[Rfam]
RNA sequence: GAUCACGCCGCAGAAUCGCACAAUGAAGCACCACAGUUCUACGACGAGGCUCUUUUAUUCAGAGACCUCGACCGAAACAUAAUUGAAAUGCUUUAGGGAAAGUCCUCGGACCUCACGGCAGAGAGUGUCACCAAUAACUGGUCUUUUCUGAGAUCCACAAGAGACGAUCGUUCAGAUCAGGGCCAAGACGUUUUCACUUGCAAAAGGGAAAUGGACGCUCCUCAAUGAUCUGUUCUUGUGGCUCAGUGUUUGUCAUAACUACAGUUAUGCGAUUGCGGUUGUCCUUUGCAGGAUGAUCGUAACUUAACGAGGCUCACUCGCGAACGUGAU
Numbered sequence: 001g002a003u004c005a006c007g008c009c010g011c012a013g014a015a016u017c018g019c020a021c022a023a024u025g026a027a028g029c030a031c032c033a034c035a036g037u038u039c040u041a042c043g044a045c046g047a048g049g050c051u052c053u054u055u056u057a058u059u060c061a062g063a064g065a066c067c068u069c070g071a072c073c074g075a076a077a078c079a080u081a082a083u084u085g086a087a088a089u090g091c092u093u094u095a096g097g098g099a100a101a102g103u104c105c106u107c108g109g110a111c112c113u114c115a116c117g118g119c120a121g122a123g124a125g126u127g128u129c130a131c132c133a134a135u136a137a138c139u140g141g142u143c144u145u146u147u148c149u150g151a152g153a154u155c156c157a158c159a160a161g162a163g164a165c166g167a168u169c170g171u172u173c174a175g176a177u178c179a180g181g182g183c184c185a186a187g188a189c190g191u192u193u194u195c196a197c198u199u200g201c202a203a204a205a206g207g208g209a210a211a212u213g214g215a216c217g218c219u220c221c222u223c224a225a226u227g228a229u230c231u232g233u234u235c236u237u238g239u240g241g242c243u244c245a246g247u248g249u250u251u252g253u254c255a256u257a258a259c260u261a262c263a264g265u266u267a268u269g270c271g272a273u274u275g276c277g278g279u280u281g282u283c284c285u286u287u288g289c290a291g292g293a294u295g296a297u298c299g300u301a302a303c304u305u306a307a308c309g310a311g312g313c314u315c316a317c318u319c320g321c322g323a324a325c326g327u328g329a330u
Stems, first nucleotide, its partner, number of pairs: 002330006009322003014274006024095006040079001101314002104312004117129004133146002150244001155241006164233003168228004213221003276299009
RNA: RNase MRP
Organism: Modicella reniformis